Shown here is a 482-nucleotide sequence from Jeongeupia sacculi, a member of the family "Bacterial RNase P class A".
The match comes from Rfam's covariance-model search (255 bits).
The base pairs follow the family's consensus structure, which is taken from published work.
Its Rfam clan is "RNaseP clan".
Nucleotides: 482
Base pairs, nucleotide, nucleotide: 001478002477003476004475005474006473007472008471009470010469011467012431013430014429015428016427017426018425020041021040023038024037025036026035027034028033046465047464048463050462051461052460053459054458055337056336057335058334062368063367064366065365067333068332069331070330071329072086073085074084075083076082087101088099089098090097091096102328103327107326108325109322110321125239126238127235128234129233132230133229135227247293248292249291250290294317295315296314297313298312299311300309301308302307341388342387343386344385350379351378352377353376354375355374361371362370363369395414396413397412398411399410400409401408402407
Number, partner (000 for none) and nucleotide at each position: 001478g002477a003476a004475g005474c006473c007472g008471g009470c010469c011467g012431g013430a014429u015428c016427g017426c018425c019000g020041c021040c022000g023038c024037u025036c026035c027034g028033a029000g030000u031000c032000a033028u034027c035026g036025g037024g038023g039000g040021g041020g042000a043000g044000g045000a046465a047464a048463g049000u050462c051461c052460g053459g054458g055337c056336u057335c058334c059000g060000c061000a062368g063367g064366g065365c066000a067333g068332g069331a070330u071329g072086c073085c074084g075083g076082c077000u078000a079000a080000c081000g082076g083075c084074c085073g086072g087101g088099c089098g090097c091096c092000g093000u094000g095000a096091g097090g098089c099088g100000a101087c102328g103327g104000a105000a106000a107326g108325u109322g110321c111000a112000a113000c114000a115000g116000a117000g118000a119000g120000c121000u122000g123000a124000a125239c126238c127235g128234c129233c130000g131000a132230u133229g134000g135227c136000g137000u138000g139000g140000a141000c142000c143000g144000a145000g146000c147000g148000c149000a150000a151000g152000c153000g154000a155000u156000g157000u158000c159000c160000a161000c162000c163000c164000c165000g166000u167000u168000u169000c170000g171000c172000u173000u174000g175000c176000u177000u178000g179000c180000a181000a182000g183000u184000g185000g186000a187000a188000u189000g190000g191000g192000c193000c194000g195000g196000g197000u198000u199000a200000a201000g202000g203000g204000u205000g206000c207000g208000a209000u210000u211000g212000a213000a214000g215000c216000g217000u218000g219000c220000c221000g222000g223000a224000c225000c226000g227135g228000g229133c230132a231000c232000a233129g234128g235127u236000a237000a238126g239125g240000g241000u242000g243000a244000a245000a246000a247293g248292g249291u250290g251000u252000u253000c254000c255000c256000g257000u258000c259000a260000g261000g262000g263000a264000a265000g266000c267000c268000c269000c270000g271000c272000a273000a274000g275000g276000g277000g278000u279000c280000g281000g282000u283000a284000a285000g286000a287000g288000c289000g290250c291249a292248c293247c294317g295315c296314g297313g298312c299311g300309c301308u302307g303000g304000u305000a306000a307302c308301a309300g310000u311299c312298g313297c314296c315295g316000g317294c318000a319000g320000g321110g322109u323000a324000a325108a326107c327103c328102c329071c330070a331069u332068c333067c334058g335057g336056a337055g338000c339000a340000a341388g342387a343386c344385c345000a346000a347000g348000c349000a350379g351378c352377a353376g354375g355374c356000g357000u358000u359000g360000a361371g362370a363369c364000g365065g366064c367063c368062c369363g370362u371361c372000g373000a374355g375354u376353c377352u378351g379350c380000g381000g382000g383000u384000a385344g386343g387342u388341u389000g390000c391000u392000u393000g394000a395414g396413c397412g398411u399410a400409g401408u402407g403000g404000u405000a406000a407402c408401g409400c410399u411398g412397c413396g414395c415000c416000u417000a418000g419000a420000g421000g422000a423000a424000u425018g426017g427016c428015g429014g430013u431012c432000a433000c434000g435000c436000a437000c438000g439000g440000u441000u442000c443000g444000c445000c446000g447000u448000g449000c450000g451000a452000a453000c454000a455000g456000a457000a458054c459053c460052c461051g462050g463048c464047u465046u466000a467011c468000a469010g470009g471008c472007c473006g474005g475004c476003u477002u478001c479000g480000c481000a482000c